The family of this 149-nucleotide RNA sequence from Herpetosiphon aurantiacus is "Group II catalytic intron D1-D4-7". A reference for the family is Lehmann and Schmidt (2003), "Group II introns: structure and catalytic versatility of large natural ribozymes", Crit Rev Biochem Mol Biol. The sequence is in the family's curated seed alignment. Rfam links the family to the GO term Group II intron splicing. NCBI's taxonomy places the organism under Bacteria, Chloroflexota, Chloroflexia, Herpetosiphon, Herpetosiphon aurantiacus. The pairing is the family consensus, mapped onto this sequence.
RNA sequence: CCUGCUGUUCCACCAGCAGUACCCUACUCGGUACUGCGGGACGGUAACGUCCCGUGGAAAGCCCGAGGACAACGUAUCCACGACCGACUGGUCGGGACAAGGGCUGUAAAGCGCUUGUCAAUCUGCAAGCAUCAUCAGCGGAUAGGAAC
Numbered sequence: 001c002c003u004g005c006u007g008u009u010c011c012a013c014c015a016g017c018a019g020u021a022c023c024c025u026a027c028u029c030g031g032u033a034c035u036g037c038g039g040g041a042c043g044g045u046a047a048c049g050u051c052c053c054g055u056g057g058a059a060a061g062c063c064c065g066a067g068g069a070c071a072a073c074g075u076a077u078c079c080a081c082g083a084c085c086g087a088c089u090g091g092u093c094g095g096g097a098c099a100a101g102g103g104c105u106g107u108a109a110a111g112c113g114c115u116u117g118u119c120a121a122u123c124u125g126c127a128a129g130c131a132u133c134a135u136c137a138g139c140g141g142a143u144a145g146g147a148a149c
Base pairs, nucleotide, nucleotide: 002019003018004017005016006015007014027067028066029065030064031063032058034057035056036055037054038053039052040051041050042049043048081094082093083092084091085090096119097118098117104111105110122142123141124140125139126138